[Rfam]
RNA sequence: UAAUUUAUUUGAGAUAUAUUUUUAUUUGGUUAUAGUAAACCUAUACUUAACUACUUAAAAUCACCAAUGACAACUAUUAUAUGAAUAAUAAUUUUUUAAGAU
Numbered sequence: 001u002a003a004u005u006u007a008u009u010u011g012a013g014a015u016a017u018a019u020u021u022u023u024a025u026u027u028g029g030u031u032a033u034a035g036u037a038a039a040c041c042u043a044u045a046c047u048u049a050a051c052u053a054c055u056u057a058a059a060a061u062c063a064c065c066a067a068u069g070a071c072a073a074c075u076a077u078u079a080u081a082u083g084a085a086u087a088a089u090a091a092u093u094u095u096u097u098a099a100g101a102u
Base pairs, nucleotide, nucleotide: 004100005099006098007097014089015088019084023081024080025079027076028075029074030073031072
RNA: MIR480 microRNA precursor family